[Rfam]
RNA: Histone 3' UTR stem-loop
Organism: Lynx canadensis
RNA sequence: CCAAAGGCUCUUUUCAGAGCCACCUGGCUUGGCCAGAAAAGACCUAU
Number, nucleotide and partner (000 for none) at each position: 001c000002c000003a000004a000005a000006g021007g020008c019009u018010c017011u016012u000013u000014u000015c000016a011017g010018a009019g008020c007021c006022a000023c000024c000025u000026g000027g000028c000029u000030u000031g000032g000033c000034c000035a000036g000037a000038a000039a000040a000041g000042a000043c000044c000045u000046a000047u000